[Rfam]
RNA sequence: GAUGUUGUGUGACAAGGAGAGAGAGCAUGCUUGUCAUCACCCAUGAACGGAUCAUGGUUGUUUACAGGUGUGCUCUCUCUUCUUGUCAUAUGGUC
Numbered sequence: 001g002a003u004g005u006u007g008u009g010u011g012a013c014a015a016g017g018a019g020a021g022a023g024a025g026c027a028u029g030c031u032u033g034u035c036a037u038c039a040c041c042c043a044u045g046a047a048c049g050g051a052u053c054a055u056g057g058u059u060g061u062u063u064a065c066a067g068g069u070g071u072g073c074u075c076u077c078u079c080u081u082c083u084u085g086u087c088a089u090a091u092g093g094u095c
Stems, first nucleotide, its partner, number of pairs: 010088005016082002020078002023075001025073010
Dot-bracket structure: .........(((((.((..((.(.((((((((((.............................)))))))))).).))..)).))))).......
RNA: MIR535 microRNA precursor family